[Rfam]
Source information:
The family of this 124-nucleotide RNA from Brassica carinata is "MIR9563 microRNA precursor family". Taxonomically the source falls in Brassica (Eukaryota, Euphyllophyta, Magnoliopsida, eudicotyledons). It scores 114 bits against the family's covariance model. The family's consensus secondary structure was predicted with RNAalifold. Rfam 15.1 lists 5,832 matches to the family in 9 species.
RNA sequence: GGAAUAUAAGAACCCGUCUCUUAACUUUUAACUAAAAAAACUAAGAACCGGUUCUUAAAACUCUAUUUAAGAACCAGUUCUUAGCUUUUUUAAUUAACAGUUAAGAGACGAGUUUUUAUAUUCC
Numbered sequence: 001g002g003a004a005u006a007u008a009a010g011a012a013c014c015c016g017u018c019u020c021u022u023a024a025c026u027u028u029u030a031a032c033u034a035a036a037a038a039a040a041c042u043a044a045g046a047a048c049c050g051g052u053u054c055u056u057a058a059a060a061c062u063c064u065a066u067u068u069a070a071g072a073a074c075c076a077g078u079u080c081u082u083a084g085c086u087u088u089u090u091u092a093a094u095u096a097a098c099a100g101u102u103a104a105g106a107g108a109c110g111a112g113u114u115u116u117u118a119u120a121u122u123c124c
Base pairs, nucleotide, nucleotide: 001124002123003122004121005120006119007118008117009116010115011114012113013112015110016109017108018107019106020105021104022103023102024101025100026099028097029096030095031094033092034091035090036089037088038087039086041084042083043082044081045080046079047078